A member of the RNA family "Mammalian CPEB3 ribozyme" from Synaphobranchus kaupii, 80 nucleotides long. Taxonomically the source falls in Synaphobranchus (Eukaryota, Opisthokonta, Teleostomi, Elopocephala). Rfam links the family to the GO term RNA nuclease activity. The family's consensus secondary structure is taken from published work.
RNA sequence: CUAAUAUAAUGGGGGUCAUGGUAGAAGCGUUCACGUCGCGACCCCUGUCAGAGAUCUAACCAAUCCCUGCGAAUUCUACC
Numbered sequence: 001c002u003a004a005u006a007u008a009a010u011g012g013g014g015g016u017c018a019u020g021g022u023a024g025a026a027g028c029g030u031u032c033a034c035g036u037c038g039c040g041a042c043c044c045c046u047g048u049c050a051g052a053g054a055u056c057u058a059a060c061c062a063a064u065c066c067c068u069g070c071g072a073a074u075u076c077u078a079c080c
Stems, first nucleotide, its partner, number of pairs: 012045006020080007027039003049069003053065003